[Rfam]
RNA sequence: GUUGUCCUGCUGUAUUUGUAUAUUAAGUUAUGUUGAAUCAACAUAAAUGAAUUGGGAAUCCAGCUCUUCUUGUGGAAUGAUACUUAUUUUGAUUAUAAGAACAUGAAAUGAGAAGGAGAUACCCACUUAAUGGGUUUGGAUUUAGACAAUAACUUAUUUACGGUACAGCGGGGUUAAU
Dot-bracket structure: .(.((((((((((((.(((...........(((((((((..............(((.(((......(((((((....((...(((((.......)))))..))....)))))))...))).)))..............)))))).)))...........))))))))))))))).)..
Numbered sequence: 001g002u003u004g005u006c007c008u009g010c011u012g013u014a015u016u017u018g019u020a021u022a023u024u025a026a027g028u029u030a031u032g033u034u035g036a037a038u039c040a041a042c043a044u045a046a047a048u049g050a051a052u053u054g055g056g057a058a059u060c061c062a063g064c065u066c067u068u069c070u071u072g073u074g075g076a077a078u079g080a081u082a083c084u085u086a087u088u089u090u091g092a093u094u095a096u097a098a099g100a101a102c103a104u105g106a107a108a109u110g111a112g113a114a115g116g117a118g119a120u121a122c123c124c125a126c127u128u129a130a131u132g133g134g135u136u137u138g139g140a141u142u143u144a145g146a147c148a149a150u151a152a153c154u155u156a157u158u159u160a161c162g163g164u165a166c167a168g169c170g171g172g173g174u175u176a177a178u
Stems, first nucleotide, its partner, number of pairs: 002176001004174012017162003031148003034144006054124003058120003067114007078103002083099005
Shown here is a 178-nucleotide RNA from Clostridium tepidiprofundi, a member of the family "6S / SsrS RNA". On this family, see Wassarman and Storz, Cell 2000: "6S RNA regulates E. coli RNA polymerase activity". The match comes from Rfam's covariance-model search (56 bits). Pairs were carried over by alignment from the consensus structure, which is taken from published work. It is annotated as a non-coding RNA gene. E. coli 6S RNA was the first non coding RNA to be sequenced, but its function was unknown until recently. It consists of 184 nucleotides that fold into an extended hairpin structure with a large single-stranded internal bulge. The 6S RNA specifically associates with RNA polymerase holoenzyme containing the sigma70 specificity factor. This interaction represses expression from a sigma70-dependent promoter during stationary phase. 6S RNA homologs have recently been identified in most bacterial genomes. Many Gram-positive species have two copies of 6S RNA. In Bacillus subtilis, both copies appear to interact with RNA polymerase holoenzyme containing the housekeeping sigma factor and be expressed during different stages of growth. In many proteobacteria, 6S RNA may be processed from a transcript encoding homologs of the E. coli YgfA protein which is a putative 5-formyltetrahydrofolate cycloligase activity.